[Rfam]
RNA sequence: AGGACCGGGGCCGCGGGACGUAAAAGAACCAAAGAACCGGGUGAAAGAACCUGCCUACCGGCCAAACCCCGAGUCGAUCACUCGGCCGGGUGAAAAGGCGUGAACCGGCUGGCGCGGCGCAGCCGUUGGGGUGCACUCUCACACCGAGGCGUUGACGCGCCUCGACAACCCCACACAUACUUCGGCCCCCGCCGGGACGGCAAUCCCAGUGCGAGGGCCUGACCAAAGAGGAAGAAAGACCCUUCCCC
Numbered sequence: 001a002g003g004a005c006c007g008g009g010g011c012c013g014c015g016g017g018a019c020g021u022a023a024a025a026g027a028a029c030c031a032a033a034g035a036a037c038c039g040g041g042u043g044a045a046a047g048a049a050c051c052u053g054c055c056u057a058c059c060g061g062c063c064a065a066a067c068c069c070c071g072a073g074u075c076g077a078u079c080a081c082u083c084g085g086c087c088g089g090g091u092g093a094a095a096a097g098g099c100g101u102g103a104a105c106c107g108g109c110u111g112g113c114g115c116g117g118c119g120c121a122g123c124c125g126u127u128g129g130g131g132u133g134c135a136c137u138c139u140c141a142c143a144c145c146g147a148g149g150c151g152u153u154g155a156c157g158c159g160c161c162u163c164g165a166c167a168a169c170c171c172c173a174c175a176c177a178u179a180c181u182u183c184g185g186c187c188c189c190c191g192c193c194g195g196g197a198c199g200g201c202a203a204u205c206c207c208a209g210u211g212c213g214a215g216g217g218c219c220u221g222a223c224c225a226a227a228g229a230g231g232a233a234g235a236a237a238g239a240c241c242c243u244u245c246c247c248c
Stems, first nucleotide, its partner, number of pairs: 010224001016069002078093006108158002184219005190213003194207004230246005
A member of the RNA family "Streptomyces sRNA 4677" from Streptomyces seoulensis, 248 nucleotides long. About the family: Located in the intergenic region between anti-sigma factor SCO4677 gene and a putative regulatory protein gene SCO4676. scr4677 expression requires the SCO4677 activity and scr4677 sRNA itself seem to affect the levels of the SCO4676-associated transcripts. The organism belongs to Streptomyces, within Bacteria. A reference for the family is Hindra et al. (2014), "Complex intra-operonic dynamics mediated by a small RNA in Streptomyces coelicolor", PLoS One. The family's RNA type in Rfam is small RNA.